[Rfam]
RNA sequence: CACUUCCUUUCUACUUUGCCAGUUGGACUAGUGUCUUUACUGGUCAUUCAAAUGGGGCAAAGGAAAUAUCCUUUUAAAACUCAAGCCAGGAGUUCCCAUUGUGGUGCAGCGAAAACGAAU
Number, nucleotide and partner (000 for none) at each position: 001c000002a000003c000004u000005u000006c000007c000008u000009u000010u000011c000012u000013a000014c000015u000016u000017u000018g000019c000020c000021a000022g000023u000024u000025g000026g000027a000028c000029u000030a000031g000032u059033g058034u057035c056036u055037u000038u000039a000040c000041u050042g049043g048044u000045c000046a000047u000048u043049c042050a041051a000052a000053u000054g000055g036056g035057g034058c033059a032060a000061a000062g000063g000064a000065a000066a000067u000068a000069u113070c000071c111072u000073u109074u108075u000076a000077a000078a000079a000080c000081u000082c101083a099084a094085g093086c092087c000088a000089g000090g000091a000092g086093u085094u084095c000096c000097c000098a000099u083100u000101g082102u000103g000104g000105u000106g000107c000108a074109g073110c000111g071112a000113a069114a000115a000116c000117g000118a000119a000120u000
A member of the RNA family "Small nucleolar RNA SNORA27" from Catagonus wagneri, 120 nucleotides long. The family's RNA type in Rfam is H/ACA-box small nucleolar RNA. Rfam 15.1 lists 819 matches to the family in 543 species. NCBI's taxonomy places the organism under Eukaryota, Craniata, Artiodactyla, Tayassuidae, Catagonus. About the family: ACA27 is a member of the H/ACA class of snoRNA that guide the sites of modification of uridines to pseudouridines. Its Rfam clan is "SNORA27 clan".